[Rfam]
RNA: Small nucleolar RNA Z107/R87
RNA sequence: GAUCGCGGUGAUGACUCAGGAAAUUCAAGCUCAACAGACCGGAAUGCAGGCUUCUCUUUUUUCUAGAGAACUUUGCGUGUCGACUUUCCCGCUGACCUGAGCGAUC
Numbered sequence: 001g002a003u004c005g006c007g008g009u010g011a012u013g014a015c016u017c018a019g020g021a022a023a024u025u026c027a028a029g030c031u032c033a034a035c036a037g038a039c040c041g042g043a044a045u046g047c048a049g050g051c052u053u054c055u056c057u058u059u060u061u062u063c064u065a066g067a068g069a070a071c072u073u074u075g076c077g078u079g080u081c082g083a084c085u086u087u088c089c090c091g092c093u094g095a096c097c098u099g100a101g102c103g104a105u106c
Stems, first nucleotide, its partner, number of pairs: 001106006